Rfam assigns this 80-nucleotide RNA from Dipodomys ordii to the family "mir-218 microRNA precursor family". The match comes from Rfam's covariance-model search (84 bits). On this family, see Chen et al., Genes Dev 2005: "The developmental miRNA profiles of zebrafish as determined by small RNA cloning". Pairs were carried over by alignment from the consensus structure, which was predicted with RNAalifold. The family has 74 seed sequences and 1,392 matches in Rfam 15.1. Lineage of the source: Eukaryota > Teleostomi > Boreoeutheria > Heteromyidae > Dipodomys.

[Rfam]
RNA sequence: GGGCCUUCCCUUGUGCUUGAUCUAACCAUGUGGCAGCUCUGCAAACGAAACAUGGUUCUGUCAAGCACCGAGGAAAGCCU
Numbered sequence: 001g002g003g004c005c006u007u008c009c010c011u012u013g014u015g016c017u018u019g020a021u022c023u024a025a026c027c028a029u030g031u032g033g034c035a036g037c038u039c040u041g042c043a044a045a046c047g048a049a050a051c052a053u054g055g056u057u058c059u060g061u062c063a064a065g066c067a068c069c070g071a072g073g074a075a076a077g078c079c080u
Stems, first nucleotide, its partner, number of pairs: 001080004006075004013068007024057008